Annotation: This 84-nucleotide RNA from Jaculus jaculus belongs to the Rfam family "Small nucleolar RNA U2-19". Gene Ontology terms of the family: nucleolus and RNA processing. For this family Rfam cites "Guide RNAs with 5' Caps and Novel Box C/D snoRNA-like Domains for Modification of snRNAs in Metazoa" (Tycowski et al., Curr Biol, 2004).
[Rfam]
RNA sequence: GAUCAAUGAUGAAAAGAGCCAAAUCUGAGCAUCAGAAAGAAGGCUUGUUAGUCUUCUUGAUGCAUGAUCUCUAUUGUUCUGAGA
Number, nucleotide and partner (000 for none) at each position: 001g000002a000003u000004c000005a000006a000007u000008g000009a000010u000011g000012a000013a000014a000015a000016g000017a000018g000019c000020c000021a000022a000023a000024u000025c000026u000027g000028a000029g063030c062031a061032u060033c059034a000035g000036a000037a000038a000039g000040a000041a054042g053043g052044c051045u000046u000047g000048u000049u000050a000051g044052u043053c042054u041055u000056c000057u000058u000059g033060a032061u031062g030063c029064a000065u000066g000067a000068u000069c000070u000071c000072u000073a000074u000075u000076g000077u000078u000079c000080u000081g000082a000083g000084a000